Shown here is a 78-nucleotide RNA sequence from Flavobacterium hercynium, a member of the family "Flavo-1 RNA". The source organism's lineage runs through Bacteria, Pseudomonadati, Flavobacteriia, Flavobacteriales and Flavobacterium. The family's RNA type in Rfam is small RNA. It scores 58 bits against the family's covariance model. The family's consensus secondary structure is taken from published work.
RNA sequence: UCCUAGCCCUGAUGGGAGGGAAAAUCCUUUUGUGCCGGGGUUCGGCAUAAAAGAUUUGGAAGGACAGCAGGAAUAAGC
Numbered sequence: 001u002c003c004u005a006g007c008c009c010u011g012a013u014g015g016g017a018g019g020g021a022a023a024a025u026c027c028u029u030u031u032g033u034g035c036c037g038g039g040g041u042u043c044g045g046c047a048u049a050a051a052a053g054a055u056u057u058g059g060a061a062g063g064a065c066a067g068c069a070g071g072a073a074u075a076a077g078c
Base pairs, nucleotide, nucleotide: 009070010069011068013066014065023056024055025054026053029051030050031049032048033047034046035045036044